Rfam assigns this 236-nucleotide RNA from Pseudanabaenaceae cyanobacterium LEGE 13415 to the family "HNH endonuclease-associated RNA and ORF (HEARO) RNA". The source organism's lineage runs through Bacteria, Bacillati, Cyanophyceae, Pseudanabaenales and Pseudanabaenaceae. Rfam 15.1 lists 952 matches to the family in 249 species. The family's consensus secondary structure is taken from published work. On this family, see Weinberg et al., Nature 2009: "Exceptional structured noncoding RNAs revealed by bacterial metagenome analysis".

Nucleotides: 236
Stems, first nucleotide, its partner, number of pairs: 001077006010029002012026001016023002080222003085100005103216011118152002122146001124144006133229005154198009166189002169186003173182003
Number, partner (000 for none) and nucleotide at each position: 001077g002076u003075c004074a005073u006072g007000a008000a009000c010029c011028c012026c013000a014000u015000g016023c017022c018000u019000a020000a021000a022017g023016g024000c025000a026012g027000g028011g029010g030000c031000u032000u033000g034000u035000a036000g037000a038000c039000u040000g041000c042000c043000c044000g045000a046000c047000u048000c049000u050000u051000c052000g053000a054000g055000c056000g057000g058000g059000a060000u061000a062000c063000g064000a065000g066000c067000c068000a069000c070000g071000a072006c073005a074004u075003g076002a077001c078000c079000a080222g081221c082220c083000u084000c085100a086099g087098u088097c089096c090000u091000c092000c093000c094000u095000u096089g097088g098087a099086c100085u101000a102000c103216g104215u105214u106213u107212u108211c109210a110209a111208g112207g113206u114000c115000a116000c117000g118152a119151u120000a121000c122146c123000u124144a125143c126142a127141a128140a129139u130000g131000c132000g133229u134228c135227g136226c137225u138000a139129g140128u141127u142126u143125g144124u145000c146122g147000c148000u149000c150000u151119a152118u153000c154198g155197c156196u157195g158194g159193u160192u161191g162190u163000u164000a165000a166189a167188c168000a169186u170185c171184u172000g173182u174181a175180a176000u177000g178000g179000g180175u181174u182173a183000a184171g185170g186169a187000a188167g189166u190162g191161c192160a193159a194158c195157c196156a197155g198154c199000a200000c201000g202000a203000c204000a205000a206113g207112c208111c209110u210109u211108g212107a213106a214105a215104a216103c217000a218000u219000u220082g221081g222080c223000g224000a225137a226136g227135c228134g229133a230000a231000c232000a233000u234000u235000a236000c